The family of this 578-nucleotide part of an RNA from candidate division MSBL1 archaeon SCGC-AAA382K21 is "Archaeal large subunit ribosomal RNA". The match comes from Rfam's covariance-model search (2786 bits).
RNA sequence: CUCCCGUAGGGAAGCGAAGACCCCGUGGAGCUUAACUGCAGGCUGCCGUUGGAGUUUGGUUGGUGGUGUAAAGUGUAGGCGGGAGCCUUCGAAUCCAGACCGCCAGGUCUGGUGGAGGCAACCAUGUAACACCGCCCGCUGUCGACCGAGUUCCUAACUACUUCGGUAGAACAGAGGCAGUUGGGCAGUUUCGCUGGGGCGGCAGCCCCUCGAAAAUUUAUCGAGGGGGUCCAAAGGUCGGCUUAGGCGGGUCAGAGAUCCGCCGUAAAGGACAAGGCCAAAAGCCGGCCUAACUGUGUCAUUAUCACAGGAUGACGCAGGGGCGAAAGCCAGGCCUAGCGAACUCCGAGGUCCCUCUUGUUGGGGGUUCGGAAUGUCGGAAAAGCUACCCCGGGGAUAACAGAGUCGUCUCCCCCAAGAGCCCGUAUCGACGGGGAGGCUUGCUACCUCGAUGUCGGUUCUUCGCAUCCUGGCCGUGCAGCAGCGGCCAAGGGUAGGGUUGUUCGCCCGUUAAAGCGGAUCGUGAGCUGGGUUUAGACCGUCGUGAGACAGGUCGGACGCUAUCUUGCGGGAGUACU
Numbered sequence: 001c002u003c004c005c006g007u008a009g010g011g012a013a014g015c016g017a018a019g020a021c022c023c024c025g026u027g028g029a030g031c032u033u034a035a036c037u038g039c040a041g042g043c044u045g046c047c048g049u050u051g052g053a054g055u056u057u058g059g060u061u062g063g064u065g066g067u068g069u070a071a072a073g074u075g076u077a078g079g080c081g082g083g084a085g086c087c088u089u090c091g092a093a094u095c096c097a098g099a100c101c102g103c104c105a106g107g108u109c110u111g112g113u114g115g116a117g118g119c120a121a122c123c124a125u126g127u128a129a130c131a132c133c134g135c136c137c138g139c140u141g142u143c144g145a146c147c148g149a150g151u152u153c154c155u156a157a158c159u160a161c162u163u164c165g166g167u168a169g170a171a172c173a174g175a176g177g178c179a180g181u182u183g184g185g186c187a188g189u190u191u192c193g194c195u196g197g198g199g200c201g202g203c204a205g206c207c208c209c210u211c212g213a214a215a216a217u218u219u220a221u222c223g224a225g226g227g228g229g230u231c232c233a234a235a236g237g238u239c240g241g242c243u244u245a246g247g248c249g250g251g252u253c254a255g256a257g258a259u260c261c262g263c264c265g266u267a268a269a270g271g272a273c274a275a276g277g278c279c280a281a282a283a284g285c286c287g288g289c290c291u292a293a294c295u296g297u298g299u300c301a302u303u304a305u306c307a308c309a310g311g312a313u314g315a316c317g318c319a320g321g322g323g324c325g326a327a328a329g330c331c332a333g334g335c336c337u338a339g340c341g342a343a344c345u346c347c348g349a350g351g352u353c354c355c356u357c358u359u360g361u362u363g364g365g366g367g368u369u370c371g372g373a374a375u376g377u378c379g380g381a382a383a384a385g386c387u388a389c390c391c392c393g394g395g396g397a398u399a400a401c402a403g404a405g406u407c408g409u410c411u412c413c414c415c416c417a418a419g420a421g422c423c424c425g426u427a428u429c430g431a432c433g434g435g436g437a438g439g440c441u442u443g444c445u446a447c448c449u450c451g452a453u454g455u456c457g458g459u460u461c462u463u464c465g466c467a468u469c470c471u472g473g474c475c476g477u478g479c480a481g482c483a484g485c486g487g488c489c490a491a492g493g494g495u496a497g498g499g500u501u502g503u504u505c506g507c508c509c510g511u512u513a514a515a516g517c518g519g520a521u522c523g524u525g526a527g528c529u530g531g532g533u534u535u536a537g538a539c540c541g542u543c544g545u546g547a548g549a550c551a552g553g554u555c556g557g558a559c560g561c562u563a564u565c566u567u568g569c570g571g572g573a574g575u576a577c578u
Stems, first nucleotide, its partner, number of pairs: 001574008010566003014561002022395004027391002029387005035189004042181006051154018078136005085119003097110005158169004192205001193203003206228006231334002237289006243269002246264006270279002294320009322331001324329001345373005351368001353367004404445003408442001409439007419429002456531001457529004461523001462520005469494002473488005497509004537555004541550003